[Rfam]
RNA sequence: UUGGUGUAUCCCGAAAAACCAGAAAAGAGUAGGUA
Numbered sequence: 001u002u003g004g005u006g007u008a009u010c011c012c013g014a015a016a017a018a019c020c021a022g023a024a025a026a027g028a029g030u031a032g033g034u035a
Stems, first nucleotide, its partner, number of pairs: 002021004011033002
RNA: DUF805b RNA
Organism: Aquirufa nivalisilvae